[Rfam]
RNA sequence: ACGUUCCGAGCUGGAGAGAGGCGAGCCAUCAGGCCGCCCACCGAAGGGGCAAGCGGGGCGACCUGCCAAUCUCUCAGGUAAAGCGGACAGCGAGGGCAAG
Numbered sequence: 001a002c003g004u005u006c007c008g009a010g011c012u013g014g015a016g017a018g019a020g021g022c023g024a025g026c027c028a029u030c031a032g033g034c035c036g037c038c039c040a041c042c043g044a045a046g047g048g049g050c051a052a053g054c055g056g057g058g059c060g061a062c063c064u065g066c067c068a069a070u071c072u073c074u075c076a077g078g079u080a081a082a083g084c085g086g087a088c089a090g091c092g093a094g095g096g097c098a099a100g
Stems, first nucleotide, its partner, number of pairs: 006095002010091004020038004040079003043075002047073003053066002
The family of this 100-nucleotide sequence from Inhella inkyongensis is "Glycine riboswitch aptamer". Pairs were carried over by alignment from the consensus structure. A search with the family's covariance model found it, with a score of 63 bits.